Shown here is a 202-nucleotide part of an RNA from Lachnellula suecica, a member of the family "Eukaryotic large subunit ribosomal RNA". Gene Ontology terms of the family: structural constituent of ribosome and ribosome. The match comes from Rfam's covariance-model search (3195 bits). The organism belongs to Lachnellula, within Eukaryota.
[Rfam]
RNA sequence: AAGUCGGCAAAAUAGAUCCGUAACUUCGGGAAAAGGAUUGGCUCUAAGGGUUAGGUACGUUGGGCCUUAGUUGGAUUUCUCUGGAGCAGGUCGGCACUAGCCUCACGGCCGGCGCCUUCCAGCAUCGGGGUAUUGACGGCUUUGGCAGCUUUCGGGCGUCCGGCGUACAAUUAAUAACCAACUUAGAACUGGUACGGACAAG
Numbered sequence: 001a002a003g004u005c006g007g008c009a010a011a012a013u014a015g016a017u018c019c020g021u022a023a024c025u026u027c028g029g030g031a032a033a034a035g036g037a038u039u040g041g042c043u044c045u046a047a048g049g050g051u052u053a054g055g056u057a058c059g060u061u062g063g064g065c066c067u068u069a070g071u072u073g074g075a076u077u078u079c080u081c082u083g084g085a086g087c088a089g090g091u092c093g094g095c096a097c098u099a100g101c102c103u104c105a106c107g108g109c110c111g112g113c114g115c116c117u118u119c120c121a122g123c124a125u126c127g128g129g130g131u132a133u134u135g136a137c138g139g140c141u142u143u144g145g146c147a148g149c150u151u152u153c154g155g156g157c158g159u160c161c162g163g164c165g166u167a168c169a170a171u172u173a174a175u176a177a178c179c180a181a182c183u184u185a186g187a188a189c190u191g192g193u194a195c196g197g198a199c200a201a202g
Stems, first nucleotide, its partner, number of pairs: 015039005024029001040190002043187006049179005055168009064146003069141003077132001079130006086123002089120002093116003097112002100109003191195001